Makes More Granules Regulator RNA (mmgR): a 74-nucleotide RNA sequence from Teichococcus oryzae.
[Rfam]
RNA sequence: UGACCGUAUCUCUGUUUCCUCCCUGAUUACAAACUUCGCCGCCUCCUCGUGAGGCGGCGUUUUUUUUUGCGUGC
Numbered sequence: 001u002g003a004c005c006g007u008a009u010c011u012c013u014g015u016u017u018c019c020u021c022c023c024u025g026a027u028u029a030c031a032a033a034c035u036u037c038g039c040c041g042c043c044u045c046c047u048c049g050u051g052a053g054g055c056g057g058c059g060u061u062u063u064u065u066u067u068u069g070c071g072u073g074c
Stems, first nucleotide, its partner, number of pairs: 008013001037059009

By type it is a small RNA.